Shown here is a 56-nucleotide RNA sequence from Entomomonas asaccharolytica, a member of the family "nhaA-I RNA".
Rfam's curators write: Acidobacteria, Alphaproteobacteria, Betaproteobacteria and Gammaproteobacteria, Verrucomicrobia, cand. division NC10.
Rfam classes the family as a riboswitch.
The match comes from Rfam's covariance-model search (44 bits).
Taxonomically the source falls in Entomomonas (Bacteria, Pseudomonadati, Pseudomonadales, Pseudomonadaceae).
RNA sequence: GGGUGUUGCAACAUUGGGUUGUAUACAGGUUUUAAAACGAUGGUCGGGCCGCCUCG
Numbered sequence: 001g002g003g004u005g006u007u008g009c010a011a012c013a014u015u016g017g018g019u020u021g022u023a024u025a026c027a028g029g030u031u032u033u034a035a036a037a038c039g040a041u042g043g044u045c046g047g048g049c050c051g052c053c054u055c056g
Stems, first nucleotide, its partner, number of pairs: 005026002008022004038056003042053003